[Rfam]
RNA sequence: GGGGAGAAAGGGGAUGGUUCCCUCCACGGGCUGCAAACCCGCUGGCCGGCCCGUCGUGCGGGCUGGAGUCCGGUUCGAUUCCGACUUCUCCCC
Numbered sequence: 001g002g003g004g005a006g007a008a009a010g011g012g013g014a015u016g017g018u019u020c021c022c023u024c025c026a027c028g029g030g031c032u033g034c035a036a037a038c039c040c041g042c043u044g045g046c047c048g049g050c051c052c053g054u055c056g057u058g059c060g061g062g063c064u065g066g067a068g069u070c071c072g073g074u075u076c077g078a079u080u081c082c083g084a085c086u087u088c089u090c091c092c093c
Base pairs, nucleotide, nucleotide: 001090002089003088004087005086006085010023011022012021013020014019025044026043027041028040029039030038046066047065048064049063050062069084071083072082073081
Shown here is a 93-nucleotide RNA sequence from Pelotomaculum thermopropionicum, a member of the family "Selenocysteine transfer RNA".
The literature on the family includes a 2000 paper in FEBS Lett by Mizutani and Goto, "Eukaryotic selenocysteine tRNA has the 9/4 secondary structure".